Rfam assigns this 66-nucleotide RNA from Balaeniceps rex to the family "Selenocysteine insertion sequence 1". Rfam 15.1 lists 3,793 matches to the family in 721 species. Rfam classes the family as a cis-regulatory element. Gene Ontology term of the family: selenocysteine incorporation.
RNA sequence: GCUUGAAUUUGUGAGGACAGGAGCAUAAACUAUGACCUAGGGGCUCCUGUCUGAUGUUUUGCAAUC
Dot-bracket structure: (.(((..........(((((((((.....(((.....)))..)))))))))..........))).)